[Rfam]
RNA sequence: CCCCUUCUCAAACCCCAAGGUCCGGCCUAUAUCUGUCCUGUCCCUUUGGGGACUAUGGGCAUAAACGCGCUCGUAAUAAGCGGAUCGGACCCGGGGGCGGUACCCGGCGGCUCCACCAAACACCCGUCGUUGGGGGGACAUGGGGCCGAAACAGGAUCGACGAACGUGUAAAGGUGUUGCUUUGUCCCGGUGAGAUACCACCGUUAUCGGUUCACAAUGCAUAAUUGCCAACGACAAUCGUGCUCCGAUCGCUCUGGCUGCCUAAGCAGUCCGAAAGAUCGAAAUUUAAGCCCUUGCGCCUAGCAGCGUAAGGCGGGGUUCGCAGGUACCUGGCAACAGAAACCUGCACU
Numbered sequence: 001c002c003c004c005u006u007c008u009c010a011a012a013c014c015c016c017a018a019g020g021u022c023c024g025g026c027c028u029a030u031a032u033c034u035g036u037c038c039u040g041u042c043c044c045u046u047u048g049g050g051g052a053c054u055a056u057g058g059g060c061a062u063a064a065a066c067g068c069g070c071u072c073g074u075a076a077u078a079a080g081c082g083g084a085u086c087g088g089a090c091c092c093g094g095g096g097g098c099g100g101u102a103c104c105c106g107g108c109g110g111c112u113c114c115a116c117c118a119a120a121c122a123c124c125c126g127u128c129g130u131u132g133g134g135g136g137g138a139c140a141u142g143g144g145g146c147c148g149a150a151a152c153a154g155g156a157u158c159g160a161c162g163a164a165c166g167u168g169u170a171a172a173g174g175u176g177u178u179g180c181u182u183u184g185u186c187c188c189g190g191u192g193a194g195a196u197a198c199c200a201c202c203g204u205u206a207u208c209g210g211u212u213c214a215c216a217a218u219g220c221a222u223a224a225u226u227g228c229c230a231a232c233g234a235c236a237a238u239c240g241u242g243c244u245c246c247g248a249u250c251g252c253u254c255u256g257g258c259u260g261c262c263u264a265a266g267c268a269g270u271c272c273g274a275a276a277g278a279u280c281g282a283a284a285u286u287u288a289a290g291c292c293c294u295u296g297c298g299c300c301u302a303g304c305a306g307c308g309u310a311a312g313g314c315g316g317g318g319u320u321c322g323c324a325g326g327u328a329c330c331u332g333g334c335a336a337c338a339g340a341a342a343c344c345u346g347c348a349c350u
Stems, first nucleotide, its partner, number of pairs: 040053005057187005067180002069177002072174001081166002085163003091107005108148007188203004194213002197211003316331004322347006
Alphaproteobacteria transfer-messenger RNA: a 350-nucleotide RNA from Maritimibacter alkaliphilus. Rfam describes the family as follows. Bacterial tmRNA, also known as 10Sa RNA or SsrA, is named for its dual tRNA and mRNA-like properties. Its role is to liberate the mRNA from a stalled ribosome. To accomplish this part of the tmRNA is used as a reading frame that ends in a translation stop signal. The broken mRNA is replaced in the ribosome by the tmRNA and translation of the tmRNA leads to addition of a proteolysis tag to the incomplete protein enabling recognition by a protease. Recently a number of permuted tmRNA genes have been found encoded in two parts. tmRNAs have been identified in eubacteria and some chloroplasts but are absent from archaeal and eukaryote nuclear genomes. The base pairs follow the family's consensus structure, which is taken from published work.